[Rfam]
Rfam assigns this 225-nucleotide sequence from Ruminococcus sp. 5_1_39BFAA to the family "Group II catalytic intron D1-D4-6".
The base pairs follow the family's consensus structure.
A reference for the family is Bonen and Vogel (2001), "The ins and outs of group II introns", Trends Genet.

RNA sequence: GAAGCCCCAUCAAAUAAGCUGCUAACCACAGCAUUUGAAGCGAGUCUUGAGUCUGUCGCGGAAACGUUGCAGGCUAAGCGUAGACAGCAAGAUAACAGGGAUAGCUAUUGAGCACCGAAAUCCCAAAGUCACCAGAGGGUCGACAUCGUGGUCUGGAUGGAAGACAACAUAUGUAUUUAUCGUUAUGGUGAGAUUUUACAUACCUCUGCGGUGUUGGUUGGAACU
Numbered sequence: 001g002a003a004g005c006c007c008c009a010u011c012a013a014a015u016a017a018g019c020u021g022c023u024a025a026c027c028a029c030a031g032c033a034u035u036u037g038a039a040g041c042g043a044g045u046c047u048u049g050a051g052u053c054u055g056u057c058g059c060g061g062a063a064a065c066g067u068u069g070c071a072g073g074c075u076a077a078g079c080g081u082a083g084a085c086a087g088c089a090a091g092a093u094a095a096c097a098g099g100g101a102u103a104g105c106u107a108u109u110g111a112g113c114a115c116c117g118a119a120a121u122c123c124c125a126a127a128g129u130c131a132c133c134a135g136a137g138g139g140u141c142g143a144c145a146u147c148g149u150g151g152u153c154u155g156g157a158u159g160g161a162a163g164a165c166a167a168c169a170u171a172u173g174u175a176u177u178u179a180u181c182g183u184u185a186u187g188g189u190g191a192g193a194u195u196u197u198a199c200a201u202a203c204c205u206c207u208g209c210g211g212u213g214u215u216g217g218u219u220g221g222a223a224c225u
Base pairs, nucleotide, nucleotide: 010038011037012036013035014034018032019031021029023191025189026188040088041087044085045084046083047082048080049079050075051074052073053072054071055070056069058067059066060065110215112214113213114212115211116210117209133208134207135206136205137204138203139165140164141163144159145158146157147156170202171201172200173199174198175197179194180193181192